[Rfam]
The family of this 127-nucleotide RNA sequence from Leptolyngbya sp. FACHB-321 is "c-di-AMP riboswitch aptamer (ydaO/yuaA leader)". The match comes from Rfam's covariance-model search (64 bits). The source organism's lineage runs through Bacteria, Cyanobacteriota, Cyanophyceae, Leptolyngbyales and Leptolyngbya.
RNA sequence: AGGAAACUGCACCCGUUAUGUAACUCAAGCGGAGGAACCAAUUUAUUGGGGCUAAUCUCGGUCAUGCCGAGAGAGACACCUUCCAGUCUUAGCCCGGCAGCUAACUCCGUCGGCAGUGGGAGGAGUA
Numbered sequence: 001a002g003g004a005a006a007c008u009g010c011a012c013c014c015g016u017u018a019u020g021u022a023a024c025u026c027a028a029g030c031g032g033a034g035g036a037a038c039c040a041a042u043u044u045a046u047u048g049g050g051g052c053u054a055a056u057c058u059c060g061g062u063c064a065u066g067c068c069g070a071g072a073g074a075g076a077c078a079c080c081u082u083c084c085a086g087u088c089u090u091a092g093c094c095c096g097g098c099a100g101c102u103a104a105c106u107c108c109g110u111c112g113g114c115a116g117u118g119g120g121a122g123g124a125g126u127a
Stems, first nucleotide, its partner, number of pairs: 008115003012112001016028002029110006039048002049095003057071004074089004